[Rfam]
RNA: 7SK RNA
RNA sequence: GGAUGCGAGGGCGAUCUGGCUGUGACAUCUGUCGCCCCAUUGAUUGCCAGGGUGGAUUCAGCUGAUCUGGCUUGCUAAGCAGGUGUCCCCUUCUGCCCUCACUGCUCCAUGUGUGCCCCUCCCUAAGAUGUGCACUCGGUUGAAGAGGACAACCUUCCCUGAUAGAGACAUGCCAUUCAUCAUUCAAGGGUAUACCCUAGCUGCACUCCCUGCUAGAACCUCCAAACGAGCUCAAGGUCCAUUUGUAGGAGAAUGUAGGGUAGUCAAGCUUCCAAGACUGCAGACACACCCAAGUGAGGCACUGCAUGGGGCAGUCUGCCAUUGUUC
Number, nucleotide and partner (000 for none) at each position: 001g108002g107003a106004u000005g102006c000007g100008a099009g098010g097011g096012c000013g093014a092015u000016c000017u000018g090019g089020c000021u000022g000023u000024g087025a086026c085027a084028u083029c082030u081031g080032u079033c000034g000035c074036c000037c070038c069039a068040u000041u000042g067043a066044u065045u064046g062047c061048c000049a000050g000051g000052g000053u000054g000055g000056a000057u000058u000059c000060a000061g047062c046063u000064g045065a044066u043067c042068u039069g038070g037071c000072u000073u000074g035075c000076u000077a000078a000079g032080c031081a030082g029083g028084u027085g026086u025087c024088c000089c019090c018091u000092u014093c013094u000095g000096c011097c010098c009099u008100c007101a000102c005103u000104g000105c000106u003107c002108c001109a000110u000111g000112u000113g000114u000115g000116c000117c000118c000119c167120u166121c165122c139123c138124u000125a136126a000127g135128a000129u000130g000131u000132g000133c000134a000135c127136u125137c000138g123139g122140u162141u161142g160143a000144a000145g000146a000147g158148g157149a156150c000151a000152a000153c000154c000155u000156u149157c148158c147159c000160u142161g141162a140163u000164a000165g121166a120167g119168a000169c000170a000171u000172g000173c000174c000175a000176u000177u000178c000179a000180u000181c000182a000183u000184u000185c000186a000187a000188g000189g000190g000191u000192a000193u000194a000195c000196c000197c000198u000199a000200g269201c268202u267203g000204c000205a000206c263207u262208c260209c259210c258211u257212g256213c255214u000215a000216g000217a000218a000219c000220c251221u250222c249223c248224a000225a000226a246227c245228g244229a243230g242231c000232u000233c000234a000235a000236g000237g000238u000239c000240c000241a000242u230243u229244u228245g227246u226247a000248g223249g222250a221251g220252a000253a000254u000255g213256u212257a211258g210259g209260g208261u000262a207263g206264u000265c000266a000267a202268g201269c200270u000271u000272c000273c000274a000275a000276g000277a000278c000279u000280g000281c000282a000283g000284a000285c000286a000287c000288a000289c000290c000291c000292a000293a326294g325295u000296g322297a000298g320299g319300c318301a315302c314303u313304g312305c311306a000307u000308g000309g000310g000311g305312c304313a303314g302315u301316c000317u000318g300319c299320c298321a000322u296323u000324g000325u294326u293327c000